The record is a 138-nucleotide RNA sequence from Morus notabilis, which matches "mir-393 microRNA precursor family" in Rfam.
The pairing is the family consensus, mapped onto this sequence.
A reference for the family is Kruszka et al. (2012), "Role of microRNAs and other sRNAs of plants in their changing environments", J Plant Physiol.
[Rfam]
RNA sequence: GAUGGAAACUUCCUAAGGGAUCGCAUGAUCCAAUAAAAUGAACUGAAAUUAGUAAAGUACUAAUAAUUAAUUAAAUACGUACACUGAUCAAAGUGCCGAAUAUAAUUAGAUCAAUGCGAUCCCUUUGGAAGUCUCCAC
Numbered sequence: 001g002a003u004g005g006a007a008a009c010u011u012c013c014u015a016a017g018g019g020a021u022c023g024c025a026u027g028a029u030c031c032a033a034u035a036a037a038a039u040g041a042a043c044u045g046a047a048a049u050u051a052g053u054a055a056a057g058u059a060c061u062a063a064u065a066a067u068u069a070a071u072u073a074a075a076u077a078c079g080u081a082c083a084c085u086g087a088u089c090a091a092a093g094u095g096c097c098g099a100a101u102a103u104a105a106u107u108a109g110a111u112c113a114a115u116g117c118g119a120u121c122c123c124u125u126u127g128g129a130a131g132u133c134u135c136c137a138c
Base pairs, nucleotide, nucleotide: 003137004136005135006134008132009131010130011129012128013127015125016124017123018122019121020120021119023117024116025115026113027112028111029110030109